Pseudomonas sRNA P26: a 56-nucleotide RNA from Vibrio astriarenae. The match comes from Rfam's covariance-model search (51 bits). About the family: This small RNA (sRNA) was computationally identified in the genome of the opportunistic pathogen Pseudomonas aeruginosa and its expression verified by northern blot analysis. P26 is conserved across many Gammaproteobacteria species and appears to be consistently located between the DNA directed RNA polymerase (beta subunit) and 50S ribosomal protein L7/L12 genes. NCBI's taxonomy places the organism under Bacteria, Pseudomonadati, Pseudomonadota, Gammaproteobacteria, Vibrio. On this family, see Livny et al., Nucleic Acids Res 2006: "Identification of 17 Pseudomonas aeruginosa sRNAs and prediction of sRNA-encoding genes in 10 diverse pathogens using the bioinformatic tool sRNAPredict2".
RNA sequence: UACUUGAGCUUCUUAGCCUAACGGCUAUUGGCUGAUGGUUUUUUAACCAUCAGCCU
Numbered sequence: 001u002a003c004u005u006g007a008g009c010u011u012c013u014u015a016g017c018c019u020a021a022c023g024g025c026u027a028u029u030g031g032c033u034g035a036u037g038g039u040u041u042u043u044u045a046a047c048c049a050u051c052a053g054c055c056u
Stems, first nucleotide, its partner, number of pairs: 014027005030055010